Shown here is a 99-nucleotide sequence from Companilactobacillus allii, a member of the family "TPP riboswitch aptamer (THI element)". The organism belongs to Companilactobacillus, within Bacteria. Rfam describes the family as follows. Vitamin B(1) in its active form thiamin pyrophosphate (TPP) is an essential coenzyme that is synthesised by coupling of pyrimidine and thiazole moieties in bacteria.
RNA sequence: AGUCAACACAGGGGGAGCCUUUGGCUGAGAGUGAUUAAAUUCAGACCCUUUAAACCUGUUAUGUUAAUACAUGCGUAGGGAUAGUGUUGUUCAAGUAUA
Numbered sequence: 001a002g003u004c005a006a007c008a009c010a011g012g013g014g015g016a017g018c019c020u021u022u023g024g025c026u027g028a029g030a031g032u033g034a035u036u037a038a039a040u041u042c043a044g045a046c047c048c049u050u051u052a053a054a055c056c057u058g059u060u061a062u063g064u065u066a067a068u069a070c071a072u073g074c075g076u077a078g079g080g081a082u083a084g085u086g087u088u089g090u091u092c093a094a095g096u097a098u099a
Stems, first nucleotide, its partner, number of pairs: 006087004011049004017025003033041003055079004060073004